[Rfam]
RNA: ALIL pseudoknot
Organism: Gordonia bronchialis
RNA sequence: GGCGUUUUUCGCCGCGGCGGAGAUCGACCGCCGACUUCGUUGAUCGUCGAGUACAUCGACGAUCACAGGGACAGGUUCGGGGUCGAUCCGAUCUGCCGGGUACUCACCGAGUACGGAAUGCAGAUUGCCCCA
Numbered sequence: 001g002g003c004g005u006u007u008u009u010c011g012c013c014g015c016g017g018c019g020g021a022g023a024u025c026g027a028c029c030g031c032c033g034a035c036u037u038c039g040u041u042g043a044u045c046g047u048c049g050a051g052u053a054c055a056u057c058g059a060c061g062a063u064c065a066c067a068g069g070g071a072c073a074g075g076u077u078c079g080g081g082g083u084c085g086a087u088c089c090g091a092u093c094u095g096c097c098g099g100g101u102a103c104u105c106a107c108c109g110a111g112u113a114c115g116g117a118a119u120g121c122a123g124a125u126u127g128c129c130c131c132a
Stems, first nucleotide, its partner, number of pairs: 016032005079131004089127002092124005